[Rfam]
The record is an 84-nucleotide RNA sequence from Haliea sp., which matches "SAH (S-adenosyl-L-homocysteine) riboswitch aptamer" in Rfam. A reference for the family is Wang et al. (2008), "Riboswitches that sense S-adenosylhomocysteine and activate genes involved in coenzyme recycling", Mol Cell.
RNA sequence: GCUUCCGAGGAGCGUUGCAGCGCCCCAUCUUUUGAGAUGCGUGGCGUGAGGCUCGGAAAUCAUCCGCAACGACGCUCACCCACC
Dot-bracket structure: ..((((((............((((.(..............).))))......))))))..........................